RNA: SAM (S-adenosyl methionine) riboswitch aptamer
Organism: Kocuria palustris
RNA sequence: GAUGACGAGAUCCGGCGCGAAGCUCUGGCUGGCCGGACGGCAACCCUCUCACCGUGGUGGGGUGCCCCAGAUGACCAUCCGGCUCCGGUUCCGCACCGCGGCAAGCACGGAUU
Number, nucleotide and partner (000 for none) at each position: 001g079002a078003u077004g076005a000006c000007g000008a000009g038010a000011u037012c036013c035014g034015g033016c032017g000018c000019g000020a000021a030022g029023c000024u000025c000026u000027g000028g000029c022030u021031g000032g016033c015034c014035g013036g012037a011038c009039g066040g065041c064042a000043a000044c062045c061046c060047u000048c057049u056050c000051a000052c000053c000054g000055u000056g049057g048058u000059g000060g046061g045062g044063u000064g041065c040066c039067c000068c000069a000070g000071a000072u000073g000074a000075c000076c004077a003078u002079c001080c000081g000082g102083c101084u100085c000086c098087g097088g096089u095090u000091c000092c000093g000094c000095a089096c088097c087098g086099c000100g084101g083102c082103a000104a000105g000106c000107a000108c000109g000110g000111a000112u000113u000